Pseudomonas sRNA CrcZ: a 393-nucleotide RNA sequence from Pseudomonas pohangensis. The source organism's lineage runs through Bacteria, Pseudomonadati, Pseudomonadales, Pseudomonadaceae and Pseudomonas. The match comes from Rfam's covariance-model search (255 bits).
RNA sequence: ACAACAAGAAUAAAAAGCUGCAAGAAACCAAUAAAAACAAUACGUAUCGACUCCAGCACAAAAAGAACAACAACGCGGAGCCGCAGCUAACUGAUUCUUUUGGGGAAGAGCCGCUUUUGAGGCUUGCUCCGUAGCCAGUCAGACAACAAGACCACUCGAGUGGCUGAGACACUGGUUGCAAAUGGAGCAGUAGAAGGCACGGUCAGCGCCCAAAGAAAUCCGUUUGCUCUUCACUCCCGAUCCUAGGGGUUAUUUCGCAAGCUCAGGCUUGUGGAAACGGGUGACACAAAAACCAAACAAGCCCGGACCAAUAAUAAGAAAACAAAGCAUGCAGAAUUUAGGGGGAGCUUCGGCUCCCCCAGUGCUUUGGCCUCCCCCGAUAUCUGCGGUCAA
Numbered sequence: 001a002c003a004a005c006a007a008g009a010a011u012a013a014a015a016a017g018c019u020g021c022a023a024g025a026a027a028c029c030a031a032u033a034a035a036a037a038c039a040a041u042a043c044g045u046a047u048c049g050a051c052u053c054c055a056g057c058a059c060a061a062a063a064a065g066a067a068c069a070a071c072a073a074c075g076c077g078g079a080g081c082c083g084c085a086g087c088u089a090a091c092u093g094a095u096u097c098u099u100u101u102g103g104g105g106a107a108g109a110g111c112c113g114c115u116u117u118u119g120a121g122g123c124u125u126g127c128u129c130c131g132u133a134g135c136c137a138g139u140c141a142g143a144c145a146a147c148a149a150g151a152c153c154a155c156u157c158g159a160g161u162g163g164c165u166g167a168g169a170c171a172c173u174g175g176u177u178g179c180a181a182a183u184g185g186a187g188c189a190g191u192a193g194a195a196g197g198c199a200c201g202g203u204c205a206g207c208g209c210c211c212a213a214a215g216a217a218a219u220c221c222g223u224u225u226g227c228u229c230u231u232c233a234c235u236c237c238c239g240a241u242c243c244u245a246g247g248g249g250u251u252a253u254u255u256c257g258c259a260a261g262c263u264c265a266g267g268c269u270u271g272u273g274g275a276a277a278c279g280g281g282u283g284a285c286a287c288a289a290a291a292a293c294c295a296a297a298c299a300a301g302c303c304c305g306g307a308c309c310a311a312u313a314a315u316a317a318g319a320a321a322a323c324a325a326a327g328c329a330u331g332c333a334g335a336a337u338u339u340a341g342g343g344g345g346a347g348c349u350u351c352g353g354c355u356c357c358c359c360c361a362g363u364g365c366u367u368u369g370g371c372c373u374c375c376c377c378c379g380a381u382a383u384c385u386g387c388g389g390u391c392a393a
Stems, first nucleotide, its partner, number of pairs: 048083002051080004098215005112208003132178007152163004233251001234249004273375003278370001279304004323369004340363001341360008